Small nucleolar RNA snR80: a 151-nucleotide RNA sequence from Byssothecium circinans. A search with the family's covariance model found it, with a score of 52 bits. The base pairs follow the family's consensus structure, which was predicted with WAR.

[Rfam]
RNA sequence: GUAACUUCACCAACACUCUGGCCCUUUCCUCUACCUAGGUAGCCCUAUGGAAUAGGCCUAUUUUGGCGUGAAGGAGAACAACGACCUUUUACUCACCGCGGUACUCUUGCCUCUGGCGUGGGUACAGUGGUCCAUCAAUUUAGGUCUACAU
Numbered sequence: 001g002u003a004a005c006u007u008c009a010c011c012a013a014c015a016c017u018c019u020g021g022c023c024c025u026u027u028c029c030u031c032u033a034c035c036u037a038g039g040u041a042g043c044c045c046u047a048u049g050g051a052a053u054a055g056g057c058c059u060a061u062u063u064u065g066g067c068g069u070g071a072a073g074g075a076g077a078a079c080a081a082c083g084a085c086c087u088u089u090u091a092c093u094c095a096c097c098g099c100g101g102u103a104c105u106c107u108u109g110c111c112u113c114u115g116g117c118g119u120g121g122g123u124a125c126a127g128u129g130g131u132c133c134a135u136c137a138a139u140u141u142a143g144g145u146c147u148a149c150a151u
Stems, first nucleotide, its partner, number of pairs: 007071003020058004026052004083146004096130004101125003105122003